RNA sequence: CGCUUCCUUCGGGGCGGGGUGAAAUUCCCUACCGGCGGUGAUGUCGCUUCAGGCGGCGCGGGUCGUCCCGCGUCACCCGGGCGGAGCGAGCAGAAGCCUCGCCCUGCUGAACCGACUCAGCCCGCGAAGCCCGCGCAGACUGCACCACGCGCAGGCCCGAUCUGGUGGGAUUCCAGAGCCGACGGUCAGAGUCCGGAUGAGAGAAGGAGGAA
Numbered sequence: 001c002g003c004u005u006c007c008u009u010c011g012g013g014g015c016g017g018g019g020u021g022a023a024a025u026u027c028c029c030u031a032c033c034g035g036c037g038g039u040g041a042u043g044u045c046g047c048u049u050c051a052g053g054c055g056g057c058g059c060g061g062g063u064c065g066u067c068c069c070g071c072g073u074c075a076c077c078c079g080g081g082c083g084g085a086g087c088g089a090g091c092a093g094a095a096g097c098c099u100c101g102c103c104c105u106g107c108u109g110a111a112c113c114g115a116c117u118c119a120g121c122c123c124g125c126g127a128a129g130c131c132c133g134c135g136c137a138g139a140c141u142g143c144a145c146c147a148c149g150c151g152c153a154g155g156c157c158c159g160a161u162c163u164g165g166u167g168g169g170a171u172u173c174c175a176g177a178g179c180c181g182a183c184g185g186u187c188a189g190a191g192u193c194c195g196g197a198u199g200a201g202a203g204a205a206g207g208a209g210g211a212a
Base pairs, nucleotide, nucleotide: 003210004209005208006207007206008205009204010203017029018028019027031192032191033181034180035125036124037123038122129156130155161177162176163175164174165173183195184194185193
The record is a 212-nucleotide RNA sequence from Deinococcus aquiradiocola, which matches "FMN riboswitch aptamer (RFN element)" in Rfam. Rfam links the family to the GO term FMN binding. Rfam 15.1 lists 6,230 matches to the family in 5,120 species. The match comes from Rfam's covariance-model search (92 bits). The source organism's lineage runs through Bacteria, Deinococcota, Deinococci, Deinococcales and Deinococcus. The RFN element is a highly conserved domain that is found frequently in the 5'-untranslated regions of prokaryotic mRNAs that encode for flavin mononucleotide (FMN) biosynthesis and transport proteins. This element is a metabolite-dependent riboswitch that directly binds FMN in the absence of proteins. In Bacillus subtilis, the riboswitch most likely controls gene expression by causing premature transcription termination within the 5' untranslated region of the ribDEAHT operon and precluding access to the ribosome-binding site of ypaA mRNA.The FMN riboswitch structure, reported in present an FMN-bound six-stem junction, adopts a butterfly-like scaffold, stapled together by opposingly directed but nearly identically folded peripheral domains.